[Rfam]
Rfam assigns this 202-nucleotide RNA from Clostridium celatum to the family "SAM riboswitch aptamer (S box leader)". A search with the family's covariance model found it, with a score of 58 bits. Taxonomically the source falls in Clostridium celatum (Bacteria, Bacillota, Eubacteriales, Clostridiaceae).
RNA sequence: UUCUUAUCCAGAGAGGUGGAGGGAAAAAGGCCCUGUGAAGCCCGGCAACCUAUUUAGAAACUAAGGAAUUAAGUAAUUAACUUUAAAUUACUUAAUAAGCUAAAUGCUCUUAAUUAAUAAGAUAUAUUAAUUAGCGUAAGUAACUUAGUUACUAUUUGUGGUGCAAAUUCCUGCAGAACAUUAUAUUUUUGCAAGAUAAGAA
Numbered sequence: 001u002u003c004u005u006a007u008c009c010a011g012a013g014a015g016g017u018g019g020a021g022g023g024a025a026a027a028a029g030g031c032c033c034u035g036u037g038a039a040g041c042c043c044g045g046c047a048a049c050c051u052a053u054u055u056a057g058a059a060a061c062u063a064a065g066g067a068a069u070u071a072a073g074u075a076a077u078u079a080a081c082u083u084u085a086a087a088u089u090a091c092u093u094a095a096u097a098a099g100c101u102a103a104a105u106g107c108u109c110u111u112a113a114u115u116a117a118u119a120a121g122a123u124a125u126a127u128u129a130a131u132u133a134g135c136g137u138a139a140g141u142a143a144c145u146u147a148g149u150u151a152c153u154a155u156u157u158g159u160g161g162u163g164c165a166a167a168u169u170c171c172u173g174c175a176g177a178a179c180a181u182u183a184u185a186u187u188u189u190u191g192c193a194a195g196a197u198a199a200g201a202a
Stems, first nucleotide, its partner, number of pairs: 001202008013043001015042003021033003028172003045164003049161002052156001054154001169194001174191005